[Rfam]
RNA sequence: ACAGCACACGGACGCAGAGAUCCUCGGGACACGCAGUAUCGGUCGCCCGCGUACGGCAGGUGGGGUCCUCCCUACCGCCGUCGUGGUCCCGAGGGGAGCGAGUGGCGAGACCGGCCGUGGACACG
Numbered sequence: 001a002c003a004g005c006a007c008a009c010g011g012a013c014g015c016a017g018a019g020a021u022c023c024u025c026g027g028g029a030c031a032c033g034c035a036g037u038a039u040c041g042g043u044c045g046c047c048c049g050c051g052u053a054c055g056g057c058a059g060g061u062g063g064g065g066u067c068c069u070c071c072c073u074a075c076c077g078c079c080g081u082c083g084u085g086g087u088c089c090c091g092a093g094g095g096g097a098g099c100g101a102g103u104g105g106c107g108a109g110a111c112c113g114g115c116c117g118u119g120g121a122c123a124c125g
Base pairs, nucleotide, nucleotide: 004122007119008118009117010116011115013100014099015098022094023093024092025091026090027089028088029087041112042111043108044107045106046105047104
This 125-nucleotide RNA sequence belongs to the Rfam family "c-di-GMP-II-GAG riboswitch aptamer". For this family Rfam cites "Bioinformatic analysis of riboswitch structures uncovers variant classes with altered ligand specificity" (Weinberg et al., Proc Natl Acad Sci U S A, 2017). Its Rfam clan is "c-di-GMP_II riboswitch clan". Rfam's curators put it in the seed alignment. Its family is annotated with regulation of gene expression and cyclic-di-GMP binding in the Gene Ontology.